[Rfam]
The family of this 82-nucleotide sequence is "Burkholderia RNA 7 (anti-hemB)". Pairs were carried over by alignment from the consensus structure, which is taken from published work. It scores 67 bits against the family's covariance model. Rfam describes the family as follows. This RNA motif was identified by computational search in b-proteobacteria Burkholderia. Co-purified with Hfq, expression confirmed by Northern blot.
RNA sequence: UCCCCGCUUCUCCUCCCUGAGCGGGUGCCUGUCGUUCUACGAUCAGGCUGUUGCCCCGCCGCGUGACGGCGGGUUUUUUUCG
Numbered sequence: 001u002c003c004c005c006g007c008u009u010c011u012c013c014u015c016c017c018u019g020a021g022c023g024g025g026u027g028c029c030u031g032u033c034g035u036u037c038u039a040c041g042a043u044c045a046g047g048c049u050g051u052u053g054c055c056c057c058g059c060c061g062c063g064u065g066a067c068g069g070c071g072g073g074u075u076u077u078u079u080u081c082g
Stems, first nucleotide, its partner, number of pairs: 003025006027048004032042003055073007